This 362-nucleotide sequence from Vogesella sp. LIG4 belongs to the Rfam family "transfer-messenger RNA". Rfam classes the family as a non-coding RNA gene. Bacterial tmRNA, also known as 10Sa RNA or SsrA, is named for its dual tRNA and mRNA-like properties.

[Rfam]
RNA sequence: GGGGGCGACCUGGUUUCGACGGGGGUUGCAAAGCGGAUGAGGGCAUACCGGGAUUUCAGUUACCCCGUAAAACGCUGAAUUUAUAUAGUCGCAAACGACGAAACUUACGCUCUGGCCGCUUAAUUGCGGCUAGACUCUACAGCAGCUCGCUGGUGGGCUGUGGGGGCAACCCCGGUAGAGUCAUUUCACACCAGCUCGCAUCGGAUCGGGUCACUUGAUCCGGUGUUAAAUUCAAGGUGACUCGUUACUGCCAAGCCUGUCCGUCGGCGUGUCGGUAAUCAAAUCCAAAUGACACGACUAAGUAUGUAGAUCUCUUCGUAGAGGGCUUCCGGACGCGGGUUCGAUUCCCGCCGCCUCCACCA
Numbered sequence: 001g002g003g004g005g006c007g008a009c010c011u012g013g014u015u016u017c018g019a020c021g022g023g024g025g026u027u028g029c030a031a032a033g034c035g036g037a038u039g040a041g042g043g044c045a046u047a048c049c050g051g052g053a054u055u056u057c058a059g060u061u062a063c064c065c066c067g068u069a070a071a072a073c074g075c076u077g078a079a080u081u082u083a084u085a086u087a088g089u090c091g092c093a094a095a096c097g098a099c100g101a102a103a104c105u106u107a108c109g110c111u112c113u114g115g116c117c118g119c120u121u122a123a124u125u126g127c128g129g130c131u132a133g134a135c136u137c138u139a140c141a142g143c144a145g146c147u148c149g150c151u152g153g154u155g156g157g158c159u160g161u162g163g164g165g166g167c168a169a170c171c172c173c174g175g176u177a178g179a180g181u182c183a184u185u186u187c188a189c190a191c192c193a194g195c196u197c198g199c200a201u202c203g204g205a206u207c208g209g210g211u212c213a214c215u216u217g218a219u220c221c222g223g224u225g226u227u228a229a230a231u232u233c234a235a236g237g238u239g240a241c242u243c244g245u246u247a248c249u250g251c252c253a254a255g256c257c258u259g260u261c262c263g264u265c266g267g268c269g270u271g272u273c274g275g276u277a278a279u280c281a282a283a284u285c286c287a288a289a290u291g292a293c294a295c296g297a298c299u300a301a302g303u304a305u306g307u308a309g310a311u312c313u314c315u316u317c318g319u320a321g322a323g324g325g326c327u328u329c330c331g332g333a334c335g336c337g338g339g340u341u342c343g344a345u346u347c348c349c350g351c352c353g354c355c356u357c358c359a360c361c362a
Base pairs, nucleotide, nucleotide: 001358002357003356004355005354006353007352020331021330022329023328024327025326026325027324033319034318035317036316037315039314040313041312042311044306045305046304047303048302049067050066051065052064055079056078057077058076059075060074111134112133113132114131115130116129117128118127119126135180136179137178138177139176140175143160144159145158146157149195150194151193152192153191154190155189199225200224201223202222203221204220205219206218209242210241211240212239213238214237244279245278246277247276248275249274250273252271253270255268256267257266259298260297261296264291335351336350337349338348339347